[Rfam]
RNA: Bacterial small signal recognition particle RNA
RNA sequence: CGUCGGUUCUCCCGCGACGAUAACCAGCAAACCCGGUCAGGCCCGGAAGGGAGCAGCCGUAGUUGGUGAUUCGGGUGCCGGGAUGCAGCUGGCGGAG
Numbered sequence: 001c002g003u004c005g006g007u008u009c010u011c012c013c014g015c016g017a018c019g020a021u022a023a024c025c026a027g028c029a030a031a032c033c034c035g036g037u038c039a040g041g042c043c044c045g046g047a048a049g050g051g052a053g054c055a056g057c058c059g060u061a062g063u064u065g066g067u068g069a070u071u072c073g074g075g076u077g078c079c080g081g082g083a084u085g086c087a088g089c090u091g092g093c094g095g096a097g
Stems, first nucleotide, its partner, number of pairs: 004091005010083005015075001018073003023067006034059004042051003